[Rfam]
RNA sequence: UUCUUAUCCAGAGAGGCGGAGGGACUGGCCCGAUGAUGCCCGGCAACCAAUCACCUGUGUACAGGGGAUACUGGUGCUAAUUCCUGCAGAGUGUAAACGCUCUGAAAGAUGAGAA
Numbered sequence: 001u002u003c004u005u006a007u008c009c010a011g012a013g014a015g016g017c018g019g020a021g022g023g024a025c026u027g028g029c030c031c032g033a034u035g036a037u038g039c040c041c042g043g044c045a046a047c048c049a050a051u052c053a054c055c056u057g058u059g060u061a062c063a064g065g066g067g068a069u070a071c072u073g074g075u076g077c078u079a080a081u082u083c084c085u086g087c088a089g090a091g092u093g094u095a096a097a098c099g100c101u102c103u104g105a106a107a108g109a110u111g112a113g114a115a
Base pairs, nucleotide, nucleotide: 001115002114003113004112005111006110007109008108013041015040016039017038021031022030023029025086027084028083042078043077044076045075047074048073050069051068052067082107087104088103089102090101091100092099
Description:
Rfam assigns this 115-nucleotide sequence from Brevibacillus sp. WF146 to the family "SAM riboswitch aptamer (S box leader)". The family's consensus secondary structure is taken from published work. About the family: The SAM riboswitch is found upstream of a number of genes which code for proteins involved in methionine or cysteine biosynthesis in Gram-positive bacteria. Lineage of the source: Bacteria > Bacilli > Caryophanales > Paenibacillaceae > Brevibacillus.